Staphylococcus sRNA 35 (srn_0335): a 256-nucleotide RNA from Staphylococcus haemolyticus.
[Rfam]
RNA sequence: UACUUUUGUUAGAAGGGAGUGGGGCAGAAAUAAUAUUUUCCAAAAUUUAUUUUACCCCAGCCUGCUUUGCUUGUAGAUUUUCUUGUUGAAAAUCUCUUUGCUGGGGCCCCGCACCCCAGCUUGCUUUGCUUGUGGAUUUUCUUGUUGAAAAUCUCUUUGCUGGGGCCCCGCACCCCAACUUGCUUAGCUCGUGGAAUUUCUUUAAGAAAUUCUCUUUGUUGGGGCCCCGCACUCAACUACGAUUCAUUAUCUAUAU
Numbered sequence: 001u002a003c004u005u006u007u008g009u010u011a012g013a014a015g016g017g018a019g020u021g022g023g024g025c026a027g028a029a030a031u032a033a034u035a036u037u038u039u040c041c042a043a044a045a046u047u048u049a050u051u052u053u054a055c056c057c058c059a060g061c062c063u064g065c066u067u068u069g070c071u072u073g074u075a076g077a078u079u080u081u082c083u084u085g086u087u088g089a090a091a092a093u094c095u096c097u098u099u100g101c102u103g104g105g106g107c108c109c110c111g112c113a114c115c116c117c118a119g120c121u122u123g124c125u126u127u128g129c130u131u132g133u134g135g136a137u138u139u140u141c142u143u144g145u146u147g148a149a150a151a152u153c154u155c156u157u158u159g160c161u162g163g164g165g166c167c168c169c170g171c172a173c174c175c176c177a178a179c180u181u182g183c184u185u186a187g188c189u190c191g192u193g194g195a196a197u198u199u200c201u202u203u204a205a206g207a208a209a210u211u212c213u214c215u216u217u218g219u220u221g222g223g224g225c226c227c228c229g230c231a232c233u234c235a236a237c238u239a240c241g242a243u244u245c246a247u248u249a250u251c252u253a254u255a256u
Base pairs, nucleotide, nucleotide: 001014003012004011015058016057017056019055020054027053028052029051030050031049032048033047035046036045037044038043060133061132064129065128069124070123075095076094077093078092079091080090081089082088100120101119102118103117104116105115106114107111134154135153136152137151138150139149140148141147157239159237161235163234165232170226173223174222176221177220178219179218191216193214194213197209198208199207200206